[Rfam]
Enterobacterial sRNA STnc550: a 390-nucleotide sequence from Citrobacter freundii. The organism belongs to Citrobacter freundii complex, within Bacteria.

RNA sequence: UACAUCUCACUCCAGACCAUAUCCUAAGUUCCUGAGAAUACUCCAGGUAAACGUUUGCCUUCACACACCCUUCGCGCAACAUCAGGGUUGCGGUACGCCAGGAAAACGACACGGAACGUCAGGAAGGGGUCAAUGGCCGGUACGCUAAUCAAGUAAGCGUGGAAUUUUGUCUGAUCUUUACGAAAAGGGGAAGAGUUAAAAGCAUUUAUCAAUAUAAAUCGUGAGAGAUUUUUACCUUCAAGUGUGCAAAAAUGCGCAAUAUCACUUUUUGUGUGGGAAUAAAAAGGAGAAAACUUGAUGAGCACCGAUCUGAAAUUUUCGUUAGUCACCACCAUUAUUGUUCUGGGUUUGAUUGUCGCCAGUGGUUUAACCGCCGCGCUGCAUUGAUGU
Numbered sequence: 001u002a003c004a005u006c007u008c009a010c011u012c013c014a015g016a017c018c019a020u021a022u023c024c025u026a027a028g029u030u031c032c033u034g035a036g037a038a039u040a041c042u043c044c045a046g047g048u049a050a051a052c053g054u055u056u057g058c059c060u061u062c063a064c065a066c067a068c069c070c071u072u073c074g075c076g077c078a079a080c081a082u083c084a085g086g087g088u089u090g091c092g093g094u095a096c097g098c099c100a101g102g103a104a105a106a107c108g109a110c111a112c113g114g115a116a117c118g119u120c121a122g123g124a125a126g127g128g129g130u131c132a133a134u135g136g137c138c139g140g141u142a143c144g145c146u147a148a149u150c151a152a153g154u155a156a157g158c159g160u161g162g163a164a165u166u167u168u169g170u171c172u173g174a175u176c177u178u179u180a181c182g183a184a185a186a187g188g189g190g191a192a193g194a195g196u197u198a199a200a201a202g203c204a205u206u207u208a209u210c211a212a213u214a215u216a217a218a219u220c221g222u223g224a225g226a227g228a229u230u231u232u233u234a235c236c237u238u239c240a241a242g243u244g245u246g247c248a249a250a251a252a253u254g255c256g257c258a259a260u261a262u263c264a265c266u267u268u269u270u271g272u273g274u275g276g277g278a279a280u281a282a283a284a285a286g287g288a289g290a291a292a293a294c295u296u297g298a299u300g301a302g303c304a305c306c307g308a309u310c311u312g313a314a315a316u317u318u319u320c321g322u323u324a325g326u327c328a329c330c331a332c333c334a335u336u337a338u339u340g341u342u343c344u345g346g347g348u349u350u351g352a353u354u355g356u357c358g359c360c361a362g363u364g365g366u367u368u369a370a371c372c373g374c375c376g377c378g379c380u381g382c383a384u385u386g387a388u389g390u
Stems, first nucleotide, its partner, number of pairs: 015131004020126001023028001030124006043093002045060006076091005098114002142196002145193002149163002152160001170188003175183002266285001268283001270281003
It scores 425 bits against the family's covariance model. By type it is a small RNA.